[Rfam]
Nucleotides: 030
Stems, first nucleotide, its partner, number of pairs: 011025005
Number, partner (000 for none) and nucleotide at each position: 001000g002000u003000u004000u005000c006000a007000g008000a009000c010000g011025a012024a013023c014022c015021u016000u017000u018000g019000u020000a021015g022014g023013g024012u025011u026000g027000a028000a029000g030000a